[Rfam]
RNA sequence: GCACGUCCCCCGUCUUUCCCAACGGGGCAGCUAACUGUAAGGCGGUUGGCGGCUGGUGAUUGUGGGCAUAGUCUGGGCAAUGCUCUUUUCUCAAGCUCCGUGCGAGCAGUUUUUCUCGCUAUGGCGUAUUUUAUCUCCGGCUGCACAGGGGCAGACUUAUGGCAUUAUUCUUACACCUCCUUUUCAGUGGCGGUAUUCUCAACACUCCCAACGACUUAUAAAAGUCUUAACGUGUUUCCGACACUCGGAAUAAAUUGCAUUUAUCCCGUUCCGUAAAUUUGCCUACUUGCGUAGGUUAGCAAUAUUGGUAUUAUUGCCUGAUUGCGAAGCGUGGUUAUUUAACGCACCCUUUAAGCGUUCCAAGACGCACAACCCAUUCUAUCAACGCAAUGCGCAAUAGUUGCUUUUCCGAGGGGCAAUGAUAUCUUCCGACCCUAAACCCUCUUUUUUU
Dot-bracket structure: .......((((((........))))))........................(((((..................................))).)).....((((..........))))...((.(..............((((......))))...................).))........((((.(..........((((..[[[[....................))))....).))))(((.((((((...)))))).))).............................(((((..]]]].....))).))(..(.....((((.........)))).........(((((........................))))).)..).................(((((.........((....)).......))))).......
Rfam assigns this 451-nucleotide RNA sequence to the family "Bacteroidales-2 RNA". The sequence is in the family's curated seed alignment.